The record is a 95-nucleotide RNA sequence from Callithrix jacchus, which matches "Small nucleolar RNA SNORD116" in Rfam.
The family's RNA type in Rfam is C/D-box small nucleolar RNA.
The base pairs follow the family's consensus structure, which was predicted with PFOLD.

RNA sequence: GGAUCGAUGAUCAGUCCCUCAAAAAAACAUUCCUUGGAAAAGCUGAACAAAAUGAGUAAAAACUCAUACCGUUGCUCUCAUCACAACUGAGGUCC
Numbered sequence: 001g002g003a004u005c006g007a008u009g010a011u012c013a014g015u016c017c018c019u020c021a022a023a024a025a026a027a028c029a030u031u032c033c034u035u036g037g038a039a040a041a042g043c044u045g046a047a048c049a050a051a052a053u054g055a056g057u058a059a060a061a062a063c064u065c066a067u068a069c070c071g072u073u074g075c076u077c078u079c080a081u082c083a084c085a086a087c088u089g090a091g092g093u094c095c
Stems, first nucleotide, its partner, number of pairs: 001095005029057004034050003